[Rfam]
Overview: Shown here is a 148-nucleotide RNA from Marininema mesophilum, a member of the family "c-di-AMP riboswitch aptamer (ydaO/yuaA leader)". Rfam describes the family as follows. This family represents a conserved RNA structure found upstream of the ydaO and yuaA genes in Bacillus subtilis and related genes in other bacteria.
RNA sequence: ACCAUUCAAUCGCUGAAUCCAACGGGUCCCGUUGGAGCGGGGGAACCAUUUAAGUGGGGUGAAUCCUGGAUGAUAGUCCAGGUAGGGUGAACUCUUCACAACCAUCCGAAUCCGUCAGCUAACCUCGUAAGCGUUAUGAAGAGGAGUG
Numbered sequence: 001a002c003c004a005u006u007c008a009a010u011c012g013c014u015g016a017a018u019c020c021a022a023c024g025g026g027u028c029c030c031g032u033u034g035g036a037g038c039g040g041g042g043g044a045a046c047c048a049u050u051u052a053a054g055u056g057g058g059g060u061g062a063a064u065c066c067u068g069g070a071u072g073a074u075a076g077u078c079c080a081g082g083u084a085g086g087g088u089g090a091a092c093u094c095u096u097c098a099c100a101a102c103c104a105u106c107c108g109a110a111u112c113c114g115u116c117a118g119c120u121a122a123c124c125u126c127g128u129a130a131g132c133g134u135u136a137u138g139a140a141g142a143g144g145a146g147u148g
Stems, first nucleotide, its partner, number of pairs: 011133004018036008037128006047056002057113003065082004085107004
Dot-bracket structure: ..........((((...((((((((...))))))))((((((....((......))(((.....((((..........))))..((((...............))))...))).........)))))).))))...............